[Rfam]
RNA: MIR530 microRNA precursor family
Organism: Acer yangbiense
RNA sequence: GCUAAGAUGCAGCCUUUAUCUGCAUUUGCACCUGCAUCUUGUGUUAUCUAUGUAUAACUAACUAGUAAGUAGUAACUACUAGUCUUCAAAAGCUAGCCUAACAAUAUUUAGCAAAUCCAACUCUUGUUUACAUGAGAUGAGUUGUGGAGGUUAAUUAGCUAGCUAUUUGACAAGAAGGUGCAGGUGUAAGUGCAGGUGAAUGCCAUUUUGGU
Numbered sequence: 001g002c003u004a005a006g007a008u009g010c011a012g013c014c015u016u017u018a019u020c021u022g023c024a025u026u027u028g029c030a031c032c033u034g035c036a037u038c039u040u041g042u043g044u045u046a047u048c049u050a051u052g053u054a055u056a057a058c059u060a061a062c063u064a065g066u067a068a069g070u071a072g073u074a075a076c077u078a079c080u081a082g083u084c085u086u087c088a089a090a091a092g093c094u095a096g097c098c099u100a101a102c103a104a105u106a107u108u109u110a111g112c113a114a115a116u117c118c119a120a121c122u123c124u125u126g127u128u129u130a131c132a133u134g135a136g137a138u139g140a141g142u143u144g145u146g147g148a149g150g151u152u153a154a155u156u157a158g159c160u161a162g163c164u165a166u167u168u169g170a171c172a173a174g175a176a177g178g179u180g181c182a183g184g185u186g187u188a189a190g191u192g193c194a195g196g197u198g199a200a201u202g203c204c205a206u207u208u209u210g211g212u
Base pairs, nucleotide, nucleotide: 001212002211003210004209005208006207007206008205009204012203013202015200016199017198018197019196020195021194022193023192024191025190026189027188028187029186030185031184032183033182034181035180036179037178038177039176